About this RNA
The family of this 86-nucleotide RNA sequence from Cicer arietinum is "Small nucleolar RNA R44/J54/Z268 family". It is annotated as a C/D-box small nucleolar RNA.
RNA sequence: UAUGCAGAUGAUGAAAAAAAGACAGGGACAUCAGCACUCCAAUGGAGAAUGUUGACUUAGUCUAAUGGGAAUCUCUCUGAUGCGUU
Numbered sequence: 001u002a003u004g005c006a007g008a009u010g011a012u013g014a015a016a017a018a019a020a021g022a023c024a025g026g027g028a029c030a031u032c033a034g035c036a037c038u039c040c041a042a043u044g045g046a047g048a049a050u051g052u053u054g055a056c057u058u059a060g061u062c063u064a065a066u067g068g069g070a071a072u073c074u075c076u077c078u079g080a081u082g083c084g085u086u
Stems, first nucleotide, its partner, number of pairs: 002085005
Dot-bracket structure: .(((((..........................................................................))))).
The source organism's lineage runs through Eukaryota, Gunneridae, Fabaceae, Cicereae and Cicer. Gene Ontology terms of the family: RNA processing and nucleolus.